[Rfam]
RNA sequence: GACGUGAUAUACUUUUAAUAGAGGGAGGGGAGUUUCACCCCUCUGAUUUAGCGGUUCUUGUCUUUAUCAUUCUUGUGUAUUGUUGUCAGCGCUACUACAAGAGUGAUAAUUUCAAGGACUGUUUUUAUUUCCUCUAAAACAUCUUUCACU
Numbered sequence: 001g002a003c004g005u006g007a008u009a010u011a012c013u014u015u016u017a018a019u020a021g022a023g024g025g026a027g028g029g030g031a032g033u034u035u036c037a038c039c040c041c042u043c044u045g046a047u048u049u050a051g052c053g054g055u056u057c058u059u060g061u062c063u064u065u066a067u068c069a070u071u072c073u074u075g076u077g078u079a080u081u082g083u084u085g086u087c088a089g090c091g092c093u094a095c096u097a098c099a100a101g102a103g104u105g106a107u108a109a110u111u112u113c114a115a116g117g118a119c120u121g122u123u124u125u126u127a128u129u130u131c132c133u134c135u136a137a138a139a140c141a142u143c144u145u146u147c148a149c150u
Stems, first nucleotide, its partner, number of pairs: 004149004019136006025043006054119007064109005070103007077095003081091003
Dot-bracket structure: ...((((...........((((((((((((.......))))))..........(((((((...(((((.((((((((((.(((.....))).))).))))))).)))))...)))))))...........)))))).........)))).
A member of the RNA family "Listeria sRNA rli48" from Listeria innocua, 150 nucleotides long.
On this family, see Toledo-Arana et al., Nature 2009: "The Listeria transcriptional landscape from saprophytism to virulence".